[Rfam]
RNA sequence: AAACGUCUUCAGGGCGGGGUGCAAUUCCCCACCGGCGGUAGGGGUGAAAGCCCGAGCCCGCGAGCGCUUUGAUGCAGCUGUCCCCCGGGCAGAAGUGUUGAAGGUCAGCAGAUCCGGUCCAAUGCCGGAGCCGACGGUUACAGUCCGGAUGAAAGAAGACGGCC
Numbered sequence: 001a002a003a004c005g006u007c008u009u010c011a012g013g014g015c016g017g018g019g020u021g022c023a024a025u026u027c028c029c030c031a032c033c034g035g036c037g038g039u040a041g042g043g044g045u046g047a048a049a050g051c052c053c054g055a056g057c058c059c060g061c062g063a064g065c066g067c068u069u070u071g072a073u074g075c076a077g078c079u080g081u082c083c084c085c086c087g088g089g090c091a092g093a094a095g096u097g098u099u100g101a102a103g104g105u106c107a108g109c110a111g112a113u114c115c116g117g118u119c120c121a122a123u124g125c126c127g128g129a130g131c132c133g134a135c136g137g138u139u140a141c142a143g144u145c146c147g148g149a150u151g152a153a154a155g156a157a158g159a160c161g162g163c164c
Stems, first nucleotide, its partner, number of pairs: 004161007017029003031144002033133002035061004056131002064109002113129005135147003